[Rfam]
RNA sequence: AAGAUUAAAGCCUGGAAGCAAUCCCCAGGGAAAACCUUAGAGGAGUCAAAACUAUGACA
Numbered sequence: 001a002a003g004a005u006u007a008a009a010g011c012c013u014g015g016a017a018g019c020a021a022u023c024c025c026c027a028g029g030g031a032a033a034a035c036c037u038u039a040g041a042g043g044a045g046u047c048a049a050a051a052c053u054a055u056g057a058c059a
Stems, first nucleotide, its partner, number of pairs: 011029004015024001017022001035043002045058004
Shown here is a 59-nucleotide RNA from Nostoc sp. PCC 7120 = FACHB-418, a member of the family "Avashort 5' UTR thermometer". Gene Ontology terms of the family: regulation of translation and response to temperature stimulus.